A member of the RNA family "Mason-Pfizer monkey virus packaging signal" from Nannospalax galili, 273 nucleotides long.
It scores 162 bits against the family's covariance model.
By type it is a cis-regulatory element.
[Rfam]
RNA sequence: UGGCACCCAAUGUGGGGCCUGGAUACUGGGGACAAUGUGAGGGAUACGGCAGAGUAAAAAAGGGGUGCUCACCCGCUCAAAUAAUUCAGAGACGCAGCGGGAGCCUGCCGCGACCAAGCUGAAGAUAAGUUGGUCGUUCAAUCAUGGGGCAAGAAUUAAGUCAGCAACAGAUUUAUGUGAUACAAUUAAGAGAAGCUCUACAGGCAAGAGGAGUAAAGGUUAAAACUGAGGAUUUAUUUCAUUUCUUUGAUUUUGUAAAGGACCUUUGUCCCU
Dot-bracket structure: .....(((...(((.........)))..)))....(((.......)))....................................((.((....(..((((.......))))...)...))..)).....(((..(.((((....))))))))....((.((.................................))..)).......((((((...(((((.........))))).......)))))).........(.((((....)))).)